[Rfam]
RNA sequence: UCAGACGGUCGGGCGAUCGCUGUGUUCAUGCCAAACAUGAAUAUGGAGGAAAGUCCGGGCUCCACGGGAGAACGGUGCCGGCUAACGGCCGGCGGGGGCGACCCUAGGGAAAGUGCCACAGAAAACAAACCGCCCGCCUGGCUUUCGGGCUGCGGGUAAGGGUGAAACGGUGCGGUAAGAGCGCACCGCCGCCGCGGCAACGCGGGGGGCAUGGCAAACCCCACCGGGAGCAAGACCGAAUAGGAAUGGCGGAUCGGCAUCCUCGGAUGCGCGAUCAGAGGUUCUCUCGCCUUGUCAUUCGGGUUGGUCGCGUGAGGCUCGUUGCGAGACGAGUCCCAGAGGAAUGAUCGCCCCGUCCUAGCGACGGACAGAACCCGGCUUACAGACCGUCUGACACU
Number, nucleotide and partner (000 for none) at each position: 001u394002c393003a392004g391005a390006c389007g388008g387009u386010c385011g383012g352013g351014c350015g349016a348017u347018c346019g000020c046021u045022g044023u043024g042025u041026u040027c039028a038029u000030g000031c000032c000033a000034a000035a000036c000037a000038u028039g027040a026041a025042u024043a023044u022045g021046g020047a000048g000049g000050a000051a381052a380053g379054u000055c378056c377057g376058g375059g374060c230061u229062c228063c227064a000065c000066g000067g000068g288069a287070g286071a285072a000073c226074g225075g224076u223077g222078c092079c091080g090081g089082c088083u000084a000085a000086c000087g000088g082089c081090c080091g079092g078093c107094g105095g104096g103097g102098g000099c000100g000101a000102c097103c096104c095105u094106a000107g093108g221109g220110a000111a000112a000113g219114u218115g215116c214117c213118a000119c000120a000121g000122a000123a000124a000125a000126c000127a000128a000129a000130c161131c160132g157133c156134c155135c154136g153137c152138c000139u000140g000141g000142c000143u000144u000145u000146c000147g000148g000149g000150c000151u000152g137153c136154g135155g134156g133157u132158a000159a000160g131161g130162g000163u000164g000165a000166a000167a000168c000169g187170g186171u185172g184173c183174g182175g000176u000177a000178a000179g000180a000181g000182c174183g173184c172185a171186c170187c169188g210189c208190c207191g000192c205193c204194g203195c202196g201197g000198c000199a000200a000201c196202g195203c194204g193205g192206g000207g190208g189209g000210c188211a000212u000213g117214g116215c115216a000217a000218a114219c113220c109221c108222c077223a076224c075225c074226g073227g063228g062229a061230g060231c000232a000233a000234g309235a308236c307237c306238g000239a000240a000241u000242a000243g000244g300245a299246a298247u297248g296249g295250c000251g000252g000253a000254u000255c000256g000257g000258c000259a000260u000261c000262c000263u000264c000265g000266g000267a000268u000269g000270c000271g000272c000273g000274a000275u000276c000277a000278g000279a293280g292281g291282u000283u289284c000285u071286c070287u069288c068289g283290c000291c281292u280293u279294g000295u249296c248297a247298u246299u245300c244301g000302g000303g000304u000305u000306g237307g236308u235309c234310g000311c000312g000313u000314g000315a000316g335317g334318c333319u332320c331321g330322u329323u328324g000325c000326g000327a000328g323329a322330c321331g320332a319333g318334u317335c316336c000337c000338a000339g000340a000341g000342g000343a000344a000345u000346g018347a017348u016349c015350g014351c013352c012353c000354c000355g000356u000357c000358c000359u000360a000361g000362c000363g000364a000365c000366g000367g000368a000369c000370a000371g000372a000373a000374c059375c058376c057377g056378g055379c053380u052381u051382a000383c011384a000385g010386a009387c008388c007389g006390u005391c004392u003393g002394a001395c000396a000397c000398u000
Source information: The family of this 398-nucleotide sequence from Kozakia baliensis is "Bacterial RNase P class A". Rfam describes the family as follows. Ribonuclease P (RNase P) is a ubiquitous endoribonuclease, found in archaea, bacteria and eukarya as well as chloroplasts and mitochondria. On this family, see Beauregard et al., RNA Biol 2013: "Identification and characterization of small RNAs in Yersinia pestis". Lineage of the source: Bacteria > Pseudomonadati > Pseudomonadota > Acetobacteraceae > Kozakia. Rfam links the family to the GO terms dimeric ribonuclease P complex, ribonuclease P activity and tRNA processing.